[Rfam]
RNA: Small nucleolar RNA Z43
Organism: Eucalyptus grandis
RNA sequence: GGACGGUGACGAUUGUAUCGUGAAAGGUCUCGUUCGUCGUAACUGGCUCCGAUUCAGGGGCCUUGCCGACCAUCCUGAUAUAUCACCACCCAUAUUCUGAGUCC
Numbered sequence: 001g002g003a004c005g006g007u008g009a010c011g012a013u014u015g016u017a018u019c020g021u022g023a024a025a026g027g028u029c030u031c032g033u034u035c036g037u038c039g040u041a042a043c044u045g046g047c048u049c050c051g052a053u054u055c056a057g058g059g060g061c062c063u064u065g066c067c068g069a070c071c072a073u074c075c076u077g078a079u080a081u082a083u084c085a086c087c088a089c090c091c092a093u094a095u096u097c098u099g100a101g102u103c104c
Base pairs, nucleotide, nucleotide: 001104002103003102004101051064052063053059